The family of this 87-nucleotide sequence from Dendrobium catenatum is "Plastid-rpl20 3UTR RNA".
RNA sequence: UAGGAUUUCGAGGAGAAUGGACUCCGGGAAGAUAGAAGAAAAAGAAAUUAAGAUUUGAGUAGUAGGAGUAAACGAACAUCUUUCAAG
Numbered sequence: 001u002a003g004g005a006u007u008u009c010g011a012g013g014a015g016a017a018u019g020g021a022c023u024c025c026g027g028g029a030a031g032a033u034a035g036a037a038g039a040a041a042a043a044g045a046a047a048u049u050a051a052g053a054u055u056u057g058a059g060u061a062g063u064a065g066g067a068g069u070a071a072a073c074g075a076a077c078a079u080c081u082u083u084c085a086a087g
Stems, first nucleotide, its partner, number of pairs: 007030003012025004070083003

The source organism's lineage runs through Eukaryota, Tracheophyta, Petrosaviidae, Epidendroideae and Dendrobium. Rfam classes the family as a cis-regulatory element. Rfam describes the family as follows. Plastid rpl20 is a non-coding RNA (ncRNA) recognised in plastids. Pairs were carried over by alignment from the consensus structure, which was predicted with LocARNA. The literature on the family includes a 2023 paper in Plant Commun by Richter et al., "Retrograde signaling in plants: A critical review focusing on the GUN pathway and beyond".